[Rfam]
RNA sequence: UGUCUGUGAUGAACAGUAAAAGGUCUGAUUACACUGCAGUUCCCCUGCAGCCCAAACGCUCCCAGCAGCCCCUUCUUAUACACCAGCAUCAAGUUGUGCUUUGUGUGUUUCCAGGGGUUGCUGACAUUCUUGGGUAACAAGUAUCUUGUAUCCAGAAGACUUAGGACUCAUGAUAGUUAAUGUUAUCCUACAUGUAUGUUAUUCCUGGGGUGUGUUGUACGGGAACUGACCUUGUAUACAGUGUAUGACUUCUAGUUUUCAAGCUGAGACA
Numbered sequence: 001u002g003u004c005u006g007u008g009a010u011g012a013a014c015a016g017u018a019a020a021a022g023g024u025c026u027g028a029u030u031a032c033a034c035u036g037c038a039g040u041u042c043c044c045c046u047g048c049a050g051c052c053c054a055a056a057c058g059c060u061c062c063c064a065g066c067a068g069c070c071c072c073u074u075c076u077u078a079u080a081c082a083c084c085a086g087c088a089u090c091a092a093g094u095u096g097u098g099c100u101u102u103g104u105g106u107g108u109u110u111c112c113a114g115g116g117g118u119u120g121c122u123g124a125c126a127u128u129c130u131u132g133g134g135u136a137a138c139a140a141g142u143a144u145c146u147u148g149u150a151u152c153c154a155g156a157a158g159a160c161u162u163a164g165g166a167c168u169c170a171u172g173a174u175a176g177u178u179a180a181u182g183u184u185a186u187c188c189u190a191c192a193u194g195u196a197u198g199u200u201a202u203u204c205c206u207g208g209g210g211u212g213u214g215u216u217g218u219a220c221g222g223g224a225a226c227u228g229a230c231c232u233u234g235u236a237u238a239c240a241g242u243g244u245a246u247g248a249c250u251u252c253u254a255g256u257u258u259u260c261a262a263g264c265u266g267a268g269a270c271a
Base pairs, nucleotide, nucleotide: 001271002270003269004268036252038250039249040248041247044223045222046221047220059210060209061208062207063123064122065121066120067119068118069117078108079107080106081105082104083103085101086100087098133187134186135185136184137183138182145172147170148169151166152165153164155162

The family of this 271-nucleotide RNA from Eleutherodactylus coqui is "Small Cajal body specific RNA 6". On this family, see Darzacq et al., EMBO J 2002: "Cajal body-specific small nuclear RNAs: a novel class of 2'-O-methylation and pseudouridylation guide RNAs". The family's RNA type in Rfam is small Cajal body RNA. The family's consensus secondary structure is taken from published work. The organism belongs to Eleutherodactylus, within Eukaryota. About the family: U88 is small Cajal body specific RNA (scaRNA). scaRNAs are a novel class of small nuclear RNAs which localise to the Cajal bodies. U88 is found associated with both fibrillarin and Gar1p and co-localises with coilin in Cajal bodies.